Description
A member of the RNA family "SL1 RNA" from Onchocerca flexuosa, 103 nucleotides long. The family is grouped with related families in Rfam's "SL clan". For this family Rfam cites "Trans-spliced leader RNA, 5S-rRNA genes and novel variant orphan spliced-leader of the lymphatic filarial nematode Wuchereria bancrofti, and a sensitive polymerase chain reaction based detection assay" (Dassanayake et al., Gene, 2001). The base pairs follow the family's consensus structure, which is taken from published work. This family represents the SL1 RNA. SL1 is commonly located in the spacer region between 5S-rRNA genes where it is involved in trans-splicing. Trans-splicing is a form of RNA processing. The acquisition of a spliced leader from a SL RNA is a intra-molecular reaction which precisely joins exons derived from separately transcribed RNAs. This mechanism of mRNA maturation has been shown to occur in a number of lower eukaryotes and is commonplace in nematodes. The match comes from Rfam's covariance-model search (100 bits).
Nucleotides: 103
Stems, first nucleotide, its partner, number of pairs: 003031010034068002039062003083100007
Number, partner (000 for none) and nucleotide at each position: 001000g002000g003031u004030u005029u006028a007027a008026u009025u010024a011023c012022c013000c014000a015000a016000g017000u018000u019000u020000g021000a022012g023011g024010u025009a026008g027007u028006u029005g030004a031003a032000u033000a034068u035067u036000a037000c038000g039062g040061c041060c042000c043000g044000g045000u046000g047000u048000u049000u050000c051000g052000g053000c054000u055000g056000c057000u058000g059000u060041g061040g062039c063000u064000u065000c066000a067035a068034a069000u070000g071000a072000a073000a074000u075000u076000u077000u078000g079000g080000a081000a082000c083100g084099u085098c086097u087096u088095g089094c090000a091000u092000u093000u094089g095088c096087g097086g098085g099084a100083c101000c102000a103000a